Shown here is a 320-nucleotide RNA sequence, a member of the family "Clostridiales-3 RNA".

RNA sequence: AGGUGUACCGAAGGAUCUAGCGAUGAAGGUCAAGCGAAUCACGGACACUUUAAAAGUAAGUGAGCACAAGUUGUUAUCAUGGCGGAGCGAUAAUAACCCACGGAGGGAUAAAAUUGCAUUUAUGCAAUUGCAUAAAUGCAACAGGUAUUCCUUAUCCUCGAAAUGGCAUGAGAGGAGAUAGUCGUUUGGACGGCGUCGUGAACACGAAAGUGUCAAUGGAUGGCAAAAGUCAUCGCCAUGAAAUGUCGAACAUUUUGUGGUAGUGGGUCCCAUGUGUACGGGCGUAAGGGGGACUGGAGACAGUCAGAGGUGCACCUACA
Dot-bracket structure: ......(((.....(((....)))...)))....................................................................(((.((((((((...................................)))))))).(((((............)))))(((.(((((....)))))))))))..(((....))).............................................................((((((............(((((....)))))....)))))).....
It is one of the family's seed sequences. The family's RNA type in Rfam is small RNA.